[Rfam]
Notes
A member of the RNA family "Guanidine-II riboswitch aptamer (mini-ykkC)" from Silvimonas terrae, 45 nucleotides long. Its family is annotated with regulation of gene expression in the Gene Ontology. Rfam 15.1 lists 1,589 matches to the family in 1,229 species.
RNA sequence: CUGUGGGGACGACCCCACAGCGUAUUGAUCACCGAGGACGGCCUC
Numbered sequence: 001c002u003g004u005g006g007g008g009a010c011g012a013c014c015c016c017a018c019a020g021c022g023u024a025u026u027g028a029u030c031a032c033c034g035a036g037g038a039c040g041g042c043c044u045c
Base pairs, nucleotide, nucleotide: 001020002019003018004017005016006015007014008013034045035044036043037042
Taxonomically the source falls in Silvimonas (Bacteria, Pseudomonadati, Neisseriales, Chitinibacteraceae).